The record is a 70-nucleotide sequence, which matches "bablM sRNA" in Rfam. The literature on the family includes a 2009 paper in BMC Genomics by Meyer et al., "Identification of candidate structured RNAs in the marine organism 'Candidatus Pelagibacter ubique'".

[Rfam]
RNA sequence: GAAUCCAUUUAAUUCAAUCACAGGUUGACCGUGAAAUCCGUUUGGAGUCUAAUUGUUUUAUAGAAAAUGG
Numbered sequence: 001g002a003a004u005c006c007a008u009u010u011a012a013u014u015c016a017a018u019c020a021c022a023g024g025u026u027g028a029c030c031g032u033g034a035a036a037u038c039c040g041u042u043u044g045g046a047g048u049c050u051a052a053u054u055g056u057u058u059u060a061u062a063g064a065a066a067a068u069g070g
Base pairs, nucleotide, nucleotide: 014028015027016026017025018024033050035048037046038045039044
The base pairs follow the family's consensus structure, which is taken from published work.